[Rfam]
RNA sequence: CCCUUAUCUUUUAAAAGUUUCAAGUUGGUCCCUUAUCUUUAUAUUAGGAUUCAAGUUGAUCCCUUCCGUCAAUUUUUUAACUAUUUCCGUUAAAUUUGGACACGUGGCAAACUGAUUUGGACACAUGGCACACUUGAACAUGUGACACGUGUCCAGAAUUAACAGUAACAGUAAAAAUAUUGACGGAAGGGACCAACUUGAAACCUAAAAAAAAGAUAAGGGACCAACUUGAAACUUUUAAAAGAUAAGGGA
Numbered sequence: 001c002c003c004u005u006a007u008c009u010u011u012u013a014a015a016a017g018u019u020u021c022a023a024g025u026u027g028g029u030c031c032c033u034u035a036u037c038u039u040u041a042u043a044u045u046a047g048g049a050u051u052c053a054a055g056u057u058g059a060u061c062c063c064u065u066c067c068g069u070c071a072a073u074u075u076u077u078u079a080a081c082u083a084u085u086u087c088c089g090u091u092a093a094a095u096u097u098g099g100a101c102a103c104g105u106g107g108c109a110a111a112c113u114g115a116u117u118u119g120g121a122c123a124c125a126u127g128g129c130a131c132a133c134u135u136g137a138a139c140a141u142g143u144g145a146c147a148c149g150u151g152u153c154c155a156g157a158a159u160u161a162a163c164a165g166u167a168a169c170a171g172u173a174a175a176a177a178u179a180u181u182g183a184c185g186g187a188a189g190g191g192a193c194c195a196a197c198u199u200g201a202a203a204c205c206u207a208a209a210a211a212a213a214a215g216a217u218a219a220g221g222g223a224c225c226a227a228c229u230u231g232a233a234a235c236u237u238u239u240a241a242a243a244g245a246u247a248a249g250g251g252a
Base pairs, nucleotide, nucleotide: 002250003249004248005247006246007245008244023229024228025227027225028224029223031221032220033219034218035217036216037215038214039213040212042210045207046206047205
Source information:
MIR2655 microRNA precursor family: a 252-nucleotide RNA from Trifolium subterraneum. Taxonomically the source falls in Trifolium (Eukaryota, eudicotyledons, Papilionoideae, Hologalegina). A search with the family's covariance model found it, with a score of 132 bits.